Clostridiales-2 RNA: an 80-nucleotide RNA. The sequence is in the family's curated seed alignment.
RNA sequence: AAAAAAGGAAGGGUGCAGGGAAGGUACUUCCCGCUGGUUUAAGGAGGGUGCUCAGGCACGAUAGUGCCGUCGAAGGGAAC
Dot-bracket structure: ..............((.(((((.....)))))))....................(((((....)))))............